[Rfam]
A member of the RNA family "R2 RNA element" from Agrilus planipennis, 125 nucleotides long.
The base pairs follow the family's consensus structure, which is taken from published work.
Rfam's curators write: This family represents the 3' UTR region of the R2 retrotransposable element. This family is known to interact with the R2-encoded reverse transcriptase in a reaction known as target primed reverse transcription (TPRT).
By type it is a cis-regulatory element.
The match comes from Rfam's covariance-model search (45 bits).
The family has 15 seed sequences and 3,698 matches in Rfam 15.1.
On this family, see Ruschak et al., RNA 2004: "Secondary structure models of the 3' untranslated regions of diverse R2 RNAs".
RNA sequence: UCCUAGAACGGCCUGAGGUAGAGGGGUUUUAGUCGGUAGGUCCGAGGACUUCUUCCUCGGGAAUCCGACACUACCCAGUCGUACAGACGGCUGGGUGUCUUUUGAAGAUUUUCCCUCUUUUAGGA
Numbered sequence: 001u002c003c004u005a006g007a008a009c010g011g012c013c014u015g016a017g018g019u020a021g022a023g024g025g026g027u028u029u030u031a032g033u034c035g036g037u038a039g040g041u042c043c044g045a046g047g048a049c050u051u052c053u054u055c056c057u058c059g060g061g062a063a064u065c066c067g068a069c070a071c072u073a074c075c076c077a078g079u080c081g082u083a084c085a086g087a088c089g090g091c092u093g094g095g096u097g098u099c100u101u102u103u104g105a106a107g108a109u110u111u112u113c114c115c116u117c118u119u120u121u122a123g124g125a
Stems, first nucleotide, its partner, number of pairs: 001125005020120004024114003032069005041061008071097001073096005